[Rfam]
RNA sequence: CCGGGCGCCGCACAAGGGCUCGGUGGACAUAGAGAGCGUCGGCUCUCAUUACCGACGCUUCUCAAGUCCAGAUUGCUCACAGGAGGAUUUGGAAAUGAGAA
Numbered sequence: 001c002c003g004g005g006c007g008c009c010g011c012a013c014a015a016g017g018g019c020u021c022g023g024u025g026g027a028c029a030u031a032g033a034g035a036g037c038g039u040c041g042g043c044u045c046u047c048a049u050u051a052c053c054g055a056c057g058c059u060u061c062u063c064a065a066g067u068c069c070a071g072a073u074u075g076c077u078c079a080c081a082g083g084a085g086g087a088u089u090u091g092g093a094a095a096u097g098a099g100a101a
Base pairs, nucleotide, nucleotide: 001023002022003021004020005019006018008017009016034060035059036058037057038056039055040054041053042052061099062098063097064096068092069091070090071089072088073087074086076085077084078083